[Rfam]
Nucleotides: 046
Base pairs, nucleotide, nucleotide: 003046004045005044007041008040009039010038015035016034017033018032019031020030021029022028
Number, partner (000 for none) and nucleotide at each position: 001000a002000c003046g004045g005044u006000u007041c008040c009039g010038g011000u012000u013000c014000a015035c016034g017033g018032c019031c020030u021029u022028g023000a024000c025000a026000c027000a028022c029021g030020a031019g032018g033017u034016c035015g036000a037000c038010c039009c040008g041007g042000c043000g044005g045004c046003c